[Rfam]
RNA sequence: CCAGAGGAUCGGGCGACCGCGGGUGGCUUUCGGGCCGCGCGAGGAAAGUCCGGGCUCCACGAAACGACGGUGCCGGGUAACGCCCGGCGGGGGCGACCCCAGGGACAGUGCCACAGAGAGUAGACGGCGACCGCUUCGGCGACGCCCAUGUGAAAGGGUGCGGUAAAAGCGCACCGCGCGACCGGUAACGGAAGCGGCAUGGUAAACCCCACCGGGAGCAAGACCGAAUAGGGAUGGCAUGGAUCGCAAGGUCCGGGGCGUGUUUCCGCCUGCCGUCCGGGUUGGUUGCUGGAGGCGGCGCGCAAGCGUCGUCGUAGAGGAAUGGUCGCCCAUCCCCUUUGUGGGAGGACAGAACCCGGCUUACAGAUCCUCUGGCGUU
Dot-bracket structure: ((((((((((((((((((.((.((((((....)))))).))....[[[.[[[[[((((....[[...((((((((((.....)))))(((((....)))).)((...(((((.............((((..(((....))).))))..........((((((.......))))))((((..(((....)))..))).)..)))..)))))))))))))...((((......((((((..................(((((...]].))))).)))))).....))))......((((((((....))))))))..........)))))))........................]]]]]]]].).))))))))))....
Shown here is a 379-nucleotide RNA from Sphingomonas sp. Leaf339, a member of the family "Bacterial RNase P class A". The base pairs follow the family's consensus structure, which is taken from published work. The source organism's lineage runs through Bacteria, Pseudomonadota, Alphaproteobacteria, Sphingomonadales and Sphingomonas. A search with the family's covariance model found it, with a score of 280 bits.